[Rfam]
Nucleotides: 343
Stems, first nucleotide, its partner, number of pairs: 040055005059218005069211002073207003084196003088192003094110005111177007220233001222231001309324004316339001
Number, partner (000 for none) and nucleotide at each position: 001000g002000g003000g004000c005000u006000a007000g008000c009000a010000a011000u012000g013000c014000g015000g016000c017000c018000c019000c020000c021000g022000u023000c024000a025000c026000c027000u028000u029000a030000u031000a032000u033000c034000g035000g036000g037000g038000a039000g040055g041054u042053c043052a044051g045000g046000g047000c048000a049000a050000c051044c052043u053042g054041g055040c056000u057000a058000u059218g060217a061216u062215c063214g064000u065000a066000g067000a068000g069211g070210c071000a072000g073207a074206g075205u076000g077000g078000a079000a080000u081000a082000a083000g084196c085195g086194u087000u088192u089191a090190g091000g092000a093000c094110g095109c096108g097107g098106g099000u100000u101000c102000g103000a104000u105000u106098c107097c108096c109095g110094c111177c112176g113175c114174c115173u116172c117171c118000a119000c120000c121000a122000u123000g124000a125000a126000a127000g128000c129000a130000u131000g132000a133000c134000c135000g136000c137000c138000g139000u140000c141000g142000u143000u144000c145000g146000c147000a148000g149000a150000c151000g152000g153000c154000a155000a156000a157000g158000g159000u160000g161000c162000u163000u164000u165000c166000c167000u168000g169000a170000u171117g172116g173115g174114g175113g176112c177111g178000a179000c180000a181000u182000g183000g184000g185000u186000u187000c188000g189000a190090c191089u192088a193000g194086g195085c196084g197000u198000g199000g200000u201000a202000a203000a204000g205075g206074c207073u208000a209000g210070g211069c212000u213000g214063c215062g216061a217060u218059u219000a220233g221000g222231c223000u224000g225000a226000g227000c228000u229000a230000c231222g232000g233220c234000c235000u236000u237000a238000a239000c240000a241000g242000u243000g244000c245000a246000a247000a248000u249000u250000c251000a252000c253000a254000a255000a256000u257000g258000c259000c260000a261000a262000c263000g264000a265000c266000a267000a268000c269000g270000u271000u272000g273000a274000c275000a276000u277000g278000g279000g280000u281000g282000c283000g284000g285000u286000u287000c288000g289000c290000c291000u292000c293000g294000c295000g296000g297000c298000g299000u300000a301000a302000c303000c304000a305000u306000c307000c308000g309324g310323g311322g312321c313000u314000c315000g316339g317000g318000a319000a320000a321312g322311c323310c324309u325000a326000g327000c328000a329000a330000c331000a332000g333000a334000a335000a336000c337000g338000g339316c340000a341000c342000c343000u
Rfam assigns this 343-nucleotide RNA from Microvirga brassicacearum to the family "Alphaproteobacteria transfer-messenger RNA". For this family Rfam cites "BRUCE: a program for the detection of transfer-messenger RNA genes in nucleotide sequences" (Laslett et al., Nucleic Acids Res, 2002). The match comes from Rfam's covariance-model search (155 bits).